[Rfam]
RNA: Xanthine riboswitch aptamer (NMT1 RNA)
Nucleotides: 049
Base pairs, nucleotide, nucleotide: 005045006044007043008042009041010040015034018036019035021031022030023029024028
Number, partner (000 for none) and nucleotide at each position: 001000g002000c003000c004000a005045a006044g007043a008042g009041u010040a011000g012000a013000a014000g015034c016000g017000u018036u019035c020000a021031g022030c023029g024028g025000c026000c027000a028024c029023c030022g031021c032000c033000c034015g035019g036018a037000a038000a039000u040010u041009g042008c043007u044006c045005u046000u047000g048000a049000a